[Rfam]
Nucleotides: 108
Base pairs, nucleotide, nucleotide: 006107007106008105009104011023012022013021014020025102026101027100028099029098030097034093035092036091037090040068041067042066043065044064045063046062069082070081071080
Number, partner (000 for none) and nucleotide at each position: 001000g002000c003000g004000u005000g006107a007106g008105c009104c010000g011023u012022g013021u014020u015000a016000a017000c018000c019000g020014a021013a022012c023011g024000c025102g026101a027100c028099a029098g030097g031000g032000a033000u034093g035092a036091u037090g038000a039000a040068c041067a042066c043065a044064g045063g046062g047000g048000u049000u050000u051000u052000u053000u054000c055000g056000g057000u058000u059000u060000c061000a062046c063045c064044c065043u066042g067041u068040g069082g070081c071080c072000g073000a074000c075000g076000a077000a078000u079000u080071g081070g082069c083000a084000g085000g086000c087000g088000a089000g090037c091036g092035u093034c094000c095000c096000a097030c098029c099028u100027g101026u102025c103000c104009g105008g106007c107006u108000c
Rfam assigns this 108-nucleotide RNA sequence from Rhizobium sp. CIAT894 to the family "Rhizobiales sRNA Atu_At1". The organism belongs to Rhizobium, within Bacteria. By type it is a small RNA. The family has 33 seed sequences and 200 matches in Rfam 15.1. On this family, see Wilms et al., RNA Biol 2012: "Deep sequencing uncovers numerous small RNAs on all four replicons of the plant pathogen Agrobacterium tumefaciens". Pairs were carried over by alignment from the consensus structure, which was predicted with CMfinder.